[Rfam]
RNA sequence: CGUUGUCUAUGAUGAACACUCUAUGUAAGGCAUAGUUCAACAGACAAAGGACUUACUACCCUUUGAGUGUUGACAUAAAAUUUCUUUCGCCCCUAUCUGAUGACACGU
Numbered sequence: 001c002g003u004u005g006u007c008u009a010u011g012a013u014g015a016a017c018a019c020u021c022u023a024u025g026u027a028a029g030g031c032a033u034a035g036u037u038c039a040a041c042a043g044a045c046a047a048a049g050g051a052c053u054u055a056c057u058a059c060c061c062u063u064u065g066a067g068u069g070u071u072g073a074c075a076u077a078a079a080a081u082u083u084c085u086u087u088c089g090c091c092c093c094u095a096u097c098u099g100a101u102g103a104c105a106c107g108u
Base pairs, nucleotide, nucleotide: 004105005104006103007102
Shown here is a 108-nucleotide RNA sequence from Apophysomyces sp. BC1034, a member of the family "Small nucleolar RNA snR60/Z15/Z230/Z193/J17". The organism belongs to Apophysomyces, within Eukaryota. A search with the family's covariance model found it, with a score of 46 bits. For this family Rfam cites "A computational screen for methylation guide snoRNAs in yeast" (Lowe and Eddy, Science, 1999). Its family is annotated with RNA processing and nucleolus in the Gene Ontology.